[Rfam]
RNA: Purine riboswitch aptamer
RNA sequence: UCAUAUUAAAUUAACUUAUUUCAUAUAUUCAUAAGAUAAGGUUAUGAGUCUCUACGCUUUACCUUAAAUAAAGCACUAUGAAGUACACUCUGGAUUUU
Numbered sequence: 001u002c003a004u005a006u007u008a009a010a011u012u013a014a015c016u017u018a019u020u021u022c023a024u025a026u027a028u029u030c031a032u033a034a035g036a037u038a039a040g041g042u043u044a045u046g047a048g049u050c051u052c053u054a055c056g057c058u059u060u061a062c063c064u065u066a067a068a069u070a071a072a073g074c075a076c077u078a079u080g081a082a083g084u085a086c087a088c089u090c091u092g093g094a095u096u097u098u
Base pairs, nucleotide, nucleotide: 018084019083020082021081022080023079024078025077029047030046031045032044033043034042056074057073058072059071060070061069